This 67-nucleotide RNA sequence from Paucimonas lemoignei belongs to the Rfam family "Betaproteobacteria toxic small RNA". The family has 51 seed sequences and 951 matches in Rfam 15.1.

RNA sequence: UGUCUCCUCCACCCUUCUCCUUUGGUGUGGAUUUCAACCCGAGGCCUUGUUGCUUCGGGUUUUUUUA
Numbered sequence: 001u002g003u004c005u006c007c008u009c010c011a012c013c014c015u016u017c018u019c020c021u022u023u024g025g026u027g028u029g030g031a032u033u034u035c036a037a038c039c040c041g042a043g044g045c046c047u048u049g050u051u052g053c054u055u056c057g058g059g060u061u062u063u064u065u066u067a
Base pairs, nucleotide, nucleotide: 008031009030010029011028012027013025014024037060038059039058040057041056042055043054044053
Rfam's curators write: Overexpression in amino aid rich medium attenuates growth, suggesting role in repressing amino acid intake and metabolism.